Rfam assigns this 78-nucleotide sequence from Flavobacterium sp. KMS to the family "Flavo-1 RNA". The base pairs follow the family's consensus structure, which is taken from published work.
RNA sequence: UUCUAGCCCAGAUAGGAACGGCAUCCUUUGCUUGCCUUCUUUAGGCAAGUAAAGAUAAAGUGGAUAGCUGGAAAUAGC
Numbered sequence: 001u002u003c004u005a006g007c008c009c010a011g012a013u014a015g016g017a018a019c020g021g022c023a024u025c026c027u028u029u030g031c032u033u034g035c036c037u038u039c040u041u042u043a044g045g046c047a048a049g050u051a052a053a054g055a056u057a058a059a060g061u062g063g064a065u066a067g068c069u070g071g072a073a074a075u076a077g078c
Stems, first nucleotide, its partner, number of pairs: 009070003013066002018061002023056003029051008